[Rfam]
RNA sequence: CGUGCAAAUUCAAGGCCACAGCAGAAGCACUCUUGGAGCAGCCCUGUCAGAUUCCAGCAAAUCUGUAAAUUCUGCU
Numbered sequence: 001c002g003u004g005c006a007a008a009u010u011c012a013a014g015g016c017c018a019c020a021g022c023a024g025a026a027g028c029a030c031u032c033u034u035g036g037a038g039c040a041g042c043c044c045u046g047u048c049a050g051a052u053u054c055c056a057g058c059a060a061a062u063c064u065g066u067a068a069a070u071u072c073u074g075c076u
Base pairs, nucleotide, nucleotide: 014043015042016041020076021075022074023073024072025071026070027039028038048065049064050063051062052061053060
Dot-bracket structure: .............[[[...(((((((((.........)).]]]....((((((......))))))....)))))))

Notes: Rfam assigns this 76-nucleotide sequence from Alligator mississippiensis to the family "Mammalian CPEB3 ribozyme". A search with the family's covariance model found it, with a score of 48 bits. The family's consensus secondary structure is taken from published work. About the family: The mammalian CPEB3 ribozyme is a self cleaving RNA located in the second intron of the CPEB3 gene which belongs to a family of genes regulating messenger RNA polyadenylation.